mir-16 microRNA precursor family: an 81-nucleotide RNA sequence from Diabrotica virgifera. Rfam 15.1 lists 4,705 matches to the family in 758 species.

RNA sequence: UUUUCAAUCUAGUAGCACAUAAAGUAAUACCAAAAAUGUAGAAUAUAUUUGGUAUUAUUUUAUGUGCUACUAGAUUGAAAA
Numbered sequence: 001u002u003u004u005c006a007a008u009c010u011a012g013u014a015g016c017a018c019a020u021a022a023a024g025u026a027a028u029a030c031c032a033a034a035a036a037u038g039u040a041g042a043a044u045a046u047a048u049u050u051g052g053u054a055u056u057a058u059u060u061u062a063u064g065u066g067c068u069a070c071u072a073g074a075u076u077g078a079a080a081a
Base pairs, nucleotide, nucleotide: 001081002080003079005077006076007075010074011071012070013069014068015067016066017065018064022059023058025057026056027055028054029053030052
Record summary: It scores 41 bits against the family's covariance model. Taxonomically the source falls in Diabrotica virgifera (Eukaryota, Metazoa, Ecdysozoa, Insecta). The family's consensus secondary structure was predicted with PFOLD.